[Rfam]
RNA sequence: UGCCCGUGAUGACUCGCCAUGCUAAUACCGACCGGCCCGCCAGCCAGGGCGAGGGGCCCGGCGCAUCUGGCGGGGCCAGGAUGAGUUGAAACCUCUUCUCGGGAAGAGCUGAAGGCGC
Numbered sequence: 001u002g003c004c005c006g007u008g009a010u011g012a013c014u015c016g017c018c019a020u021g022c023u024a025a026u027a028c029c030g031a032c033c034g035g036c037c038c039g040c041c042a043g044c045c046a047g048g049g050c051g052a053g054g055g056g057c058c059c060g061g062c063g064c065a066u067c068u069g070g071c072g073g074g075g076c077c078a079g080g081a082u083g084a085g086u087u088g089a090a091a092c093c094u095c096u097u098c099u100c101g102g103g104a105a106g107a108g109c110u111g112a113a114g115g116c117g118c
Base pairs, nucleotide, nucleotide: 001117002116003115004114036074037073038072039071040070041069042068043067
Rfam assigns this 118-nucleotide RNA from Dromaius novaehollandiae to the family "Small nucleolar RNA U6-53/MBII-28". For this family Rfam cites "RNomics: an experimental approach that identifies 201 candidates for novel, small, non-messenger RNAs in mouse" (Huttenhofer et al., EMBO J, 2001).